[Rfam]
RNA sequence: GUGCAGAUGAUGGAAAAGUUUUUUUGCUGACAAAAGUGAUGUUAACAAAGGAACCGCUGAUGCAC
Numbered sequence: 001g002u003g004c005a006g007a008u009g010a011u012g013g014a015a016a017a018g019u020u021u022u023u024u025u026g027c028u029g030a031c032a033a034a035a036g037u038g039a040u041g042u043u044a045a046c047a048a049a050g051g052a053a054c055c056g057c058u059g060a061u062g063c064a065c
Base pairs, nucleotide, nucleotide: 001065002064003063004062005061
The family of this 65-nucleotide RNA from Ornithorhynchus anatinus is "Small nucleolar RNA SNORD42".
The literature on the family includes a 2002 paper in Mol Cell Biol by Galardi et al., "Purified box C/D snoRNPs are able to reproduce site-specific 2'-O-methylation of target RNA in vitro".
It scores 65 bits against the family's covariance model.
The family's RNA type in Rfam is C/D-box small nucleolar RNA.